[Rfam]
RNA sequence: GUCAAGUUGACCAAACGUGGGAGGAGGCGCGGAGCGAAACCGCAAGUCCAUGGACAAGAACCGGUAAAUGGCGCCGCCGACCAAGACGAGCAGGCAUAAAAUCACAAAGUCUUUGAAUCCGAAGGAGAGGACGAGGUCGAGGAUCUCGGGGGAUUCGGCGGAUCCGGCGACGAUU
Numbered sequence: 001g002u003c004a005a006g007u008u009g010a011c012c013a014a015a016c017g018u019g020g021g022a023g024g025a026g027g028c029g030c031g032g033a034g035c036g037a038a039a040c041c042g043c044a045a046g047u048c049c050a051u052g053g054a055c056a057a058g059a060a061c062c063g064g065u066a067a068a069u070g071g072c073g074c075c076g077c078c079g080a081c082c083a084a085g086a087c088g089a090g091c092a093g094g095c096a097u098a099a100a101a102u103c104a105c106a107a108a109g110u111c112u113u114u115g116a117a118u119c120c121g122a123a124g125g126a127g128a129g130g131a132c133g134a135g136g137u138c139g140a141g142g143a144u145c146u147c148g149g150g151g152g153a154u155u156c157g158g159c160g161g162a163u164c165c166g167g168c169g170a171c172g173a174u175u
Stems, first nucleotide, its partner, number of pairs: 001016002006011001027175001030172002034168002040161004045155005061150002063147001064144002072139002075136001078133002081130002084112004090105001093102001
RNA: Group II catalytic intron D1-D4-3